[Rfam]
RNA sequence: GACGCUUCAUGACAGGAAGGACUGAAAUGUCUUGCGGACGCCUGGUCUUUCCUUGACGUUCCUGCGGC
Dot-bracket structure: (.(((........((((((((((.....(((.....)))....))))))))))..........))).)
RNA: Selenocysteine insertion sequence 1